[Rfam]
RNA: tRNA
Organism: Leuconostoc fallax
RNA sequence: GCACCUAUAGCGCAAUUGGAUAGAGCGUCUGACUACGAAUCAGGAGGUUGCAGGUUCGACUCCUGCUAGGUGCA
Numbered sequence: 001g002c003a004c005c006u007a008u009a010g011c012g013c014a015a016u017u018g019g020a021u022a023g024a025g026c027g028u029c030u031g032a033c034u035a036c037g038a039a040u041c042a043g044g045a046g047g048u049u050g051c052a053g054g055u056u057c058g059a060c061u062c063c064u065g066c067u068a069g070g071u072g073c074a
Stems, first nucleotide, its partner, number of pairs: 001073007010026002013023001028044005050066005